[Rfam]
RNA: SmY spliceosomal RNA
RNA sequence: CGAAAAUCUAAGAAAUUGCCAGGGCCUUCCAUAAGACCCCAAGAUAAUUUUUGGAUACCCUUUAGGUAAGGGUA
Numbered sequence: 001c002g003a004a005a006a007u008c009u010a011a012g013a014a015a016u017u018g019c020c021a022g023g024g025c026c027u028u029c030c031a032u033a034a035g036a037c038c039c040c041a042a043g044a045u046a047a048u049u050u051u052u053g054g055a056u057a058c059c060c061u062u063u064a065g066g067u068a069a070g071g072g073u074a
Stems, first nucleotide, its partner, number of pairs: 022039003026035003057073006